The family of this 133-nucleotide RNA from Ornithorhynchus anatinus is "Small nucleolar RNA SNORA68". Rfam classes the family as an H/ACA-box small nucleolar RNA. The match comes from Rfam's covariance-model search (96 bits). Lineage of the source: Eukaryota > Opisthokonta > Bilateria > Deuterostomia > Ornithorhynchus. U68 is a member of the H/ACA class of small nucleolar RNAs (snoRNAs) which act as guides in the the modification of uridines to pseudouridines. The base pairs follow the family's consensus structure, which was predicted with PFOLD.
RNA sequence: ACAGCACCCUGAGCCCCAAAGAUCAUCAUUUUCCUUUAAUAAUGAUCUUAUCUUGGGUGCUAACAUCAUAUGUACCAUGUCGCCUUUCAAGAGCUGAAGUGCUCAUGAAAGUGAAAUGGAAGGUUCUACACAC
Numbered sequence: 001a002c003a004g005c006a007c008c009c010u011g012a013g014c015c016c017c018a019a020a021g022a023u024c025a026u027c028a029u030u031u032u033c034c035u036u037u038a039a040u041a042a043u044g045a046u047c048u049u050a051u052c053u054u055g056g057g058u059g060c061u062a063a064c065a066u067c068a069u070a071u072g073u074a075c076c077a078u079g080u081c082g083c084c085u086u087u088c089a090a091g092a093g094c095u096g097a098a099g100u101g102c103u104c105a106u107g108a109a110a111g112u113g114a115a116a117u118g119g120a121a122g123g124u125u126c127u128a129c130a131c132a133c
Stems, first nucleotide, its partner, number of pairs: 003061007021047006028040003072126001074124003078120001084111006091104004